[Rfam]
RNA: Makes More Granules Regulator RNA (mmgR)
Nucleotides: 080
Stems, first nucleotide, its partner, number of pairs: 008020004044065009
Number, partner (000 for none) and nucleotide at each position: 001000g002000c003000g004000u005000c006000u007000u008020g009019c010018c011017c012000u013000u014000c015000c016000u017011g018010g019009g020008c021000g022000u023000u024000u025000c026000c027000u028000c029000c030000c031000u032000a033000u034000a035000g036000a037000c038000u039000u040000u041000c042000a043000a044065a045064g046063c047062c048061g049060c050059g051058c052057c053000g054000u055000u056000u057052g058051g059050c060049g061048c062047g063046g064045c065044u066000c067000u068000u069000u070000u071000u072000u073000u074000g075000u076000c077000c078000u079000g080000g